The record is an 89-nucleotide RNA from Aeromicrobium yanjiei, which matches "Glycine riboswitch aptamer" in Rfam.
The family is grouped with related families in Rfam's "Glycine riboswitch clan".
Rfam describes the family as follows. This family represents the bacterial glycine riboswitch.
A search with the family's covariance model found it, with a score of 60 bits.
[Rfam]
RNA sequence: CGACCGCGCGUGGGAGAGAUCGCCCAGGCGGCGCCGAAGGGGCAAUUCCUCCCCGGAACCUCUCAGGCACCAAGGACCACGCGACCGAG
Dot-bracket structure: ......(((((((......((((....)))).(((((..(((...((.......))...))))).)))........)))))))......

Description:
The organism belongs to Aeromicrobium, within Bacteria.